[Rfam]
RNA sequence: UCCCCGCUUCCCUCCCUGAGCGGGUACCUUGCUCAAUCAAGGUCUUUUUACCCCGGCCACUGGCCGGGGUUUUUUAU
Numbered sequence: 001u002c003c004c005c006g007c008u009u010c011c012c013u014c015c016c017u018g019a020g021c022g023g024g025u026a027c028c029u030u031g032c033u034c035a036a037u038c039a040a041g042g043u044c045u046u047u048u049u050a051c052c053c054c055g056g057c058c059a060c061u062g063g064c065c066g067g068g069g070u071u072u073u074u075u076a077u
Base pairs, nucleotide, nucleotide: 003024004023005022006021007020008019026043027042028041029040030039031038051069052068053067054066055065056064057063058062
Background
Shown here is a 77-nucleotide sequence from Leeia aquatica, a member of the family "Burkholderia RNA 7 (anti-hemB)". Rfam describes the family as follows. This RNA motif was identified by computational search in b-proteobacteria Burkholderia. Co-purified with Hfq, expression confirmed by Northern blot. NCBI's taxonomy places the organism under Bacteria, Pseudomonadati, Pseudomonadota, Neisseriales, Leeia. On this family, see Khoo et al., BMC Genomics 2012: "Computational discovery and RT-PCR validation of novel Burkholderia conserved and Burkholderia pseudomallei unique sRNAs". It scores 71 bits against the family's covariance model. Its family is annotated with protein binding and bacterial biofilm matrix in the Gene Ontology. The family has 26 seed sequences and 479 matches in Rfam 15.1.